pemK RNA: a 64-nucleotide RNA sequence from Vescimonas fastidiosa. Pairs were carried over by alignment from the consensus structure, which is taken from published work.
RNA sequence: AUAAUGAUACGUCCGCAUGGUGCGGUUCUGCCCACAAGAAUGGGAAUAGUUGAGAUACUAAUGG
Numbered sequence: 001a002u003a004a005u006g007a008u009a010c011g012u013c014c015g016c017a018u019g020g021u022g023c024g025g026u027u028c029u030g031c032c033c034a035c036a037a038g039a040a041u042g043g044g045a046a047u048a049g050u051u052g053a054g055a056u057a058c059u060a061a062u063g064g
Base pairs, nucleotide, nucleotide: 012061013025014024015023016022026046027045028044031042047060048059049058